[Rfam]
RNA sequence: AGCGCAGGAGCUGCUGCCUCGCACAGGAGCAAAUUACCGCGUUCAGCUAAUCCGCAGUAACUUGCUCCUGUGAGAGGUAGCGGCUCCUGGCU
Numbered sequence: 001a002g003c004g005c006a007g008g009a010g011c012u013g014c015u016g017c018c019u020c021g022c023a024c025a026g027g028a029g030c031a032a033a034u035u036a037c038c039g040c041g042u043u044c045a046g047c048u049a050a051u052c053c054g055c056a057g058u059a060a061c062u063u064g065c066u067c068c069u070g071u072g073a074g075a076g077g078u079a080g081c082g083g084c085u086c087c088u089g090g091c092u
Stems, first nucleotide, its partner, number of pairs: 001092003005089016022072011034060004039055003
Background
mir-1451 microRNA precursor family: a 92-nucleotide sequence. Rfam 15.1 lists 341 matches to the family in 340 species. The base pairs follow the family's consensus structure, which was predicted with RNAalifold. Its family is annotated with miRNA-mediated post-transcriptional gene silencing and RISC complex in the Gene Ontology.